The family of this 92-nucleotide RNA sequence from Bradyrhizobium ivorense is "Repression of heat shock gene expression (ROSE) element". The organism belongs to Bradyrhizobium, within Bacteria. Its family is annotated with response to temperature stimulus and regulation of translation in the Gene Ontology. By type it is an RNA thermoregulator. Rfam's curators write: This family represents a 5' UTR cis-regulatory element found in heat shock mRNAs and is known as the ROSE (repression of heat shock gene expression) element. The ROSE element is a negative regulator of heat shock gene expression. The secondary structure is thought to be regulated by temperature. This regulation blocks access to the ribosome binding site under normal conditions.

[Rfam]
RNA sequence: CUGGGCGCCAUCGGGUCCAGACCAGACGGGCACCGGUCGUGUCCGGUGCCGUUCAUAUCCAUCUUGCUCUGUGGAGGAUUUGGUUAUGCGCA
Numbered sequence: 001c002u003g004g005g006c007g008c009c010a011u012c013g014g015g016u017c018c019a020g021a022c023c024a025g026a027c028g029g030g031c032a033c034c035g036g037u038c039g040u041g042u043c044c045g046g047u048g049c050c051g052u053u054c055a056u057a058u059c060c061a062u063c064u065u066g067c068u069c070u071g072u073g074g075a076g077g078a079u080u081u082g083g084u085u086a087u088g089c090g091c092a
Stems, first nucleotide, its partner, number of pairs: 001020006008014002027051001029050008052090001054088004059083003064078002067076003